[Rfam]
RNA sequence: UUUACAGAGUUUAUUGGCAUUCUGUCCACCUCCACUUGCUCUUUGGAUCUCCACGGAGGAGGAGAGGAGGUGGACAUACUGCCAACUGAUCUCUGUUAG
Numbered sequence: 001u002u003u004a005c006a007g008a009g010u011u012u013a014u015u016g017g018c019a020u021u022c023u024g025u026c027c028a029c030c031u032c033c034a035c036u037u038g039c040u041c042u043u044u045g046g047a048u049c050u051c052c053a054c055g056g057a058g059g060a061g062g063a064g065a066g067g068a069g070g071u072g073g074a075c076a077u078a079c080u081g082c083c084a085a086c087u088g089a090u091c092u093c094u095g096u097u098a099g
Stems, first nucleotide, its partner, number of pairs: 011089001014085006023076011
The family of this 99-nucleotide RNA from Trifolium pratense is "MIR394 microRNA precursor family". The family's consensus secondary structure was predicted with WAR. Gene Ontology terms of the family: RISC complex and miRNA-mediated post-transcriptional gene silencing. On this family, see Jones-Rhoades and Bartel, Mol Cell 2004: "Computational identification of plant microRNAs and their targets, including a stress-induced miRNA".